[Rfam]
RNA: CRISPR RNA direct repeat element
RNA sequence: GUUGCGAUCCCUCUAGGGGUGAUGAGCGAC
Numbered sequence: 001g002u003u004g005c006g007a008u009c010c011c012u013c014u015a016g017g018g019g020u021g022a023u024g025a026g027c028g029a030c
Base pairs, nucleotide, nucleotide: 001030002029003028004027005026007020008019009018010017011016